The family of this 46-nucleotide RNA from Mauremys mutica is "Histone 3' UTR stem-loop".
[Rfam]
RNA sequence: ACAACGGCUCUUCUCAGAGCCACCCACAUUUUCACAGUAAGAGCUG
Numbered sequence: 001a002c003a004a005c006g007g008c009u010c011u012u013c014u015c016a017g018a019g020c021c022a023c024c025c026a027c028a029u030u031u032u033c034a035c036a037g038u039a040a041g042a043g044c045u046g
Stems, first nucleotide, its partner, number of pairs: 006021006

Taxonomically the source falls in Mauremys (Eukaryota, Metazoa, Eumetazoa, Teleostomi).